[Rfam]
RNA sequence: GAGGUGCGGGUUGAGCACAGAGCGAACUAUUCUUUUGCCUUUUACUAAAGAAUACCGUGUGCUCGGCCCACUGAAGCACCAUAGCCUAAAUUUUUGGCAGGGGUUUCCCUCCGGAAUCCCC
Numbered sequence: 001g002a003g004g005u006g007c008g009g010g011u012u013g014a015g016c017a018c019a020g021a022g023c024g025a026a027c028u029a030u031u032c033u034u035u036u037g038c039c040u041u042u043u044a045c046u047a048a049a050g051a052a053u054a055c056c057g058u059g060u061g062c063u064c065g066g067c068c069c070a071c072u073g074a075a076g077c078a079c080c081a082u083a084g085c086c087u088a089a090a091u092u093u094u095u096g097g098c099a100g101g102g103g104u105u106u107c108c109c110u111c112c113g114g115a116a117u118c119c120c121c
Stems, first nucleotide, its partner, number of pairs: 003080004009068011028054008100121004105116001
Dot-bracket structure: ..((((..(((((((((((........((((((((...........))))))))...)))))))))))........))))...................((((.(..........).))))

Shown here is a 121-nucleotide RNA from Ceratopteris richardii, a member of the family "U5 spliceosomal RNA". Gene Ontology terms of the family: spliceosomal tri-snRNP complex assembly and U5 snRNP. Rfam describes the family as follows. U5 RNA is a component of both types of known spliceosome. Taxonomically the source falls in Ceratopteris (Eukaryota, Embryophyta, Polypodiopsida, Parkerioideae). A search with the family's covariance model found it, with a score of 86 bits. The family's consensus secondary structure is taken from published work.